Shown here is a 124-nucleotide RNA from Brassica oleracea, a member of the family "MIR9563 microRNA precursor family". Its family is annotated with RISC complex and miRNA-mediated post-transcriptional gene silencing in the Gene Ontology. It scores 97 bits against the family's covariance model.
RNA sequence: GGAAUAUAAAAAUCCAUCUCUUAAUUUUUAAUUUAAAAAGUUAAAACCGGUUCUUAAAUAAGAGUUUCAAUAGCAGGUUAUUAACUUUUUUAGUUAAAAGUUAAGAGAUAGGUUUUUAUAUUCC
Numbered sequence: 001g002g003a004a005u006a007u008a009a010a011a012a013u014c015c016a017u018c019u020c021u022u023a024a025u026u027u028u029u030a031a032u033u034u035a036a037a038a039a040g041u042u043a044a045a046a047c048c049g050g051u052u053c054u055u056a057a058a059u060a061a062g063a064g065u066u067u068c069a070a071u072a073g074c075a076g077g078u079u080a081u082u083a084a085c086u087u088u089u090u091u092a093g094u095u096a097a098a099a100g101u102u103a104a105g106a107g108a109u110a111g112g113u114u115u116u117u118a119u120a121u122u123c124c
Base pairs, nucleotide, nucleotide: 001124002123003122004121005120006119007118008117009116010115011114012113013112014111016109017108018107019106020105021104022103023102024101025100026099027098028097029096030095031094032093033092035090036089037088038087039086041084042083043082044081045079046078